[Rfam]
This 85-nucleotide RNA sequence from Juglans regia belongs to the Rfam family "Small nucleolar RNA Z159/U59". Its family is annotated with nucleolus and RNA processing in the Gene Ontology. The family's RNA type in Rfam is C/D-box small nucleolar RNA. The organism belongs to Juglans, within Eukaryota. Clan: SNORD59 clan.
RNA sequence: GCCUCUGAGGAUGAAUACAAAAUAACUUUCGUUCUUCUGAGAUGUUCCAUGCAGAGCAAGUUUUGGAGACCUGAACUGAAGGGGC
Numbered sequence: 001g002c003c004u005c006u007g008a009g010g011a012u013g014a015a016u017a018c019a020a021a022a023u024a025a026c027u028u029u030c031g032u033u034c035u036u037c038u039g040a041g042a043u044g045u046u047c048c049a050u051g052c053a054g055a056g057c058a059a060g061u062u063u064u065g066g067a068g069a070c071c072u073g074a075a076c077u078g079a080a081g082g083g084g085c
Stems, first nucleotide, its partner, number of pairs: 003083004
Dot-bracket structure: ..((((.........................................................................))))..